[Rfam]
RNA sequence: UGGGCUGAACGCAAGCUCCGGGUCCAUCGAGGGCGGGGAAGUUCCCC
Numbered sequence: 001u002g003g004g005c006u007g008a009a010c011g012c013a014a015g016c017u018c019c020g021g022g023u024c025c026a027u028c029g030a031g032g033g034c035g036g037g038g039a040a041g042u043u044c045c046c047c
Stems, first nucleotide, its partner, number of pairs: 001026006007018002010015001
Description:
The record is a 47-nucleotide RNA sequence, which matches "DUF3800-XI RNA" in Rfam. From the family's description: Actinobacteria, Firmicutes, Proteobacteria, Spirochaetes (1 example). The family's RNA type in Rfam is small RNA.